[Rfam]
RNA sequence: GACAAUACGGGGAAUGACGUCCUCCCCGCGGGCAAUCGCCCCGAACCGCCCUUACGGGCUGAUGGCAUCUGCAAAUAC
Numbered sequence: 001g002a003c004a005a006u007a008c009g010g011g012g013a014a015u016g017a018c019g020u021c022c023u024c025c026c027c028g029c030g031g032g033c034a035a036u037c038g039c040c041c042c043g044a045a046c047c048g049c050c051c052u053u054a055c056g057g058g059c060u061g062a063u064g065g066c067a068u069c070u071g072c073a074a075a076u077a078c
Base pairs, nucleotide, nucleotide: 010026011025012024013023016069017068019066020065021064048059049058050057051056
About this RNA:
This 78-nucleotide sequence from Eubacterium sp. CAG:115 belongs to the Rfam family "Fluoride riboswitch aptamer (crcB RNA motif)". The organism belongs to Eubacterium, within Bacteria.